[Rfam]
RNA: Eukaryotic large subunit ribosomal RNA, nucleotides 2043 to 2477
RNA sequence: GAUAGUAGCAAAUACUUAAAUAAGAACUUUGAGAACUAAAGUGGGGAAAGAUUUCAUAUGAACAGCAGUUGGAUAUAGAUUAGUUAAUUCUAAGAUAUAGAGUAGUUCUGUUUGAAAGCACACUCUAGUAUGCUGUUUGUUAAAAGGAAAGCUGGUUAAUAUUCUGGCAUCUGGAUAUGGAUUCUCUACAGCAAUGUAACUGAAUGUGAAGAUGUUAGCAGAAGUUCUGGAAAGAGUUCUUUUUUCUUCUUAAUAAUCUAUCAUCCUGAAAUUAGUUUGUCUGAAGCUAGAGUUUCAUGACUGAUAGAGCUCUGCAUCUUUACAAAGUCUGGUGCACUCCUGAUGACUCUUGAAAAUCUGCAGAAAGAAAUAGUUUUCACACCAGAUCAUACUCAUAACUGCAGCAGGUCUCCAAGAUGAAAAGCCUCUAGUUAA
Dot-bracket structure: ..............((((((.......))))))((((.....((((..((...(.((((...((.....)).)))).)......(.(.((...((.((.(.(....).))).......((..........)).......))....))...(((((........)))))..((((.(.((((.....((((....))))......((((.(...((((.(((.(((.((((.((((.........)))).)...((.((....((.(((...((((.....))))...))).)).....)).))......((.((.(....).)).))..)))...))).))).)))).........).))))............).))).))))).).)..)).....((......)).)))).((.(.....).))..))))..